[Rfam]
RNA sequence: CGUGUGGUGUCUGGCGGCGAUAGGGCUGGAUAGCGACGCGACCUUAACAGAGGU
Numbered sequence: 001c002g003u004g005u006g007g008u009g010u011c012u013g014g015c016g017g018c019g020a021u022a023g024g025g026c027u028g029g030a031u032a033g034c035g036a037c038g039c040g041a042c043c044u045u046a047a048c049a050g051a052g053g054u
Base pairs, nucleotide, nucleotide: 001040002039003038004037005036007034008033011029012028013027014026015025
This 54-nucleotide RNA from Xenorhabdus cabanillasii belongs to the Rfam family "L31-Gammaproteobacteria ribosomal protein leader".
The organism belongs to Xenorhabdus cabanillasii, within Bacteria.
On this family, see Eckert and Weinberg, BMC Microbiol 2020: "Discovery of 20 novel ribosomal leader candidates in bacteria and archaea".
The family is grouped with related families in Rfam's "Ribosomal Protein L31 Leader clan".